[Rfam]
A member of the RNA family "S4-Fusobacteriales ribosomal protein leader", 73 nucleotides long. Clan: Ribosomal Protein S4 Leader clan. Rfam's curators put it in the seed alignment. On this family, see Eckert and Weinberg, BMC Microbiol 2020: "Discovery of 20 novel ribosomal leader candidates in bacteria and archaea". By type it is a cis-regulatory leader.
RNA sequence: UUGUAAAGAUAUGUUUGGCCGUAGAGCUUAUUCUUAUCGCUGAUUAUUUAAGGUAAUAAGGCAUAUUGAAGAA
Numbered sequence: 001u002u003g004u005a006a007a008g009a010u011a012u013g014u015u016u017g018g019c020c021g022u023a024g025a026g027c028u029u030a031u032u033c034u035u036a037u038c039g040c041u042g043a044u045u046a047u048u049u050a051a052g053g054u055a056a057u058a059a060g061g062c063a064u065a066u067u068g069a070a071g072a073a
Stems, first nucleotide, its partner, number of pairs: 008067006014030001017028003033060005